[Rfam]
Shown here is a 258-nucleotide RNA from Equus asinus, a member of the family "Nuclear RNase P".
It is annotated as a ribozyme.
Rfam describes the family as follows. Ribonuclease P (RNase P) is a ubiquitous endoribonuclease, found in archaea, bacteria and eukarya as well as chloroplasts and mitochondria. Its best characterised activity is the generation of mature 5'-ends of tRNAs by cleaving the 5'-leader elements of precursor-tRNAs. Cellular RNase Ps are ribonucleoproteins. RNA from bacterial RNase Ps retains its catalytic activity in the absence of the protein subunit, i.e. it is a ribozyme. Isolated eukaryotic and archaeal RNase P RNA has not been shown to retain its catalytic function, but is still essential for the catalytic activity of the holoenzyme. Although the archaeal and eukaryotic holoenzyme s have a much greater protein content than the bacterial ones, the RNA cores from all the three lineages are homologous -- helices corresponding to P1, P2, P3, P4, and P10/11 are common to all cellular RNase P RNAs. Yet, there is considerable sequence variation, particularly among the eukaryotic RNAs.
Taxonomically the source falls in Equus (Eukaryota, Vertebrata, Euteleostomi, Laurasiatheria).
It scores 83 bits against the family's covariance model.
For this family Rfam cites "Ribonuclease P: unity and diversity in a tRNA processing ribozyme" (Frank and Pace, Annu Rev Biochem, 1998).

RNA sequence: AACGUUAGGGAAGCUCAUCUGUGGGGCCACGAGCUGACUGCGUCGUGUCACUCUACCUCACAUCCUUUGGAAAGUUCUGAGGGAGGUGAGUUCCGAGGCCCCGGGGGGAGGGCAGCCCGCUCUUGGGGAGGGCCCGGCGGAUGCCUCCUUAGUCGGAGCUUGGAACAGACUCAGGGCCCAGCGAAGUGAGCUUCAGUGGCUGAGGGGAGGUGCCCUGCGUGGGCCCUCAUCACCCCAUUCAGACUACUCUCCCCCAUU
Numbered sequence: 001a002a003c004g005u006u007a008g009g010g011a012a013g014c015u016c017a018u019c020u021g022u023g024g025g026g027c028c029a030c031g032a033g034c035u036g037a038c039u040g041c042g043u044c045g046u047g048u049c050a051c052u053c054u055a056c057c058u059c060a061c062a063u064c065c066u067u068u069g070g071a072a073a074g075u076u077c078u079g080a081g082g083g084a085g086g087u088g089a090g091u092u093c094c095g096a097g098g099c100c101c102c103g104g105g106g107g108g109a110g111g112g113c114a115g116c117c118c119g120c121u122c123u124u125g126g127g128g129a130g131g132g133c134c135c136g137g138c139g140g141a142u143g144c145c146u147c148c149u150u151a152g153u154c155g156g157a158g159c160u161u162g163g164a165a166c167a168g169a170c171u172c173a174g175g176g177c178c179c180a181g182c183g184a185a186g187u188g189a190g191c192u193u194c195a196g197u198g199g200c201u202g203a204g205g206g207g208a209g210g211u212g213c214c215c216u217g218c219g220u221g222g223g224c225c226c227u228c229a230u231c232a233c234c235c236c237a238u239u240c241a242g243a244c245u246a247c248u249c250u251c252c253c254c255c256a257u258u
Base pairs, nucleotide, nucleotide: 001258002257004255009252010251011250014204015203016202017201019199020198023067024066025065026064036053037052039050040049041047077242078241079240080239081238097178098177099176100175118132120130121129122128136145137144138143148174149173151171152170153169154168205230207228208227209226210225